[Rfam]
RNA: Glutamine-II riboswitch aptamer
RNA sequence: GUCCGUUCAUCGCUUAUGCGACGCAUGUCAUCUAGUCAUGGAACGGGGGCUAGGU
Number, nucleotide and partner (000 for none) at each position: 001g000002u000003c000004c045005g044006u043007u042008c041009a000010u021011c020012g019013c018014u000015u000016a000017u000018g013019c012020g011021a010022c000023g000024c000025a000026u000027g000028u000029c000030a055031u054032c053033u052034a051035g050036u048037c047038a000039u000040g000041g008042a007043a006044c005045g004046g000047g037048g036049g000050c035051u034052a033053g032054g031055u030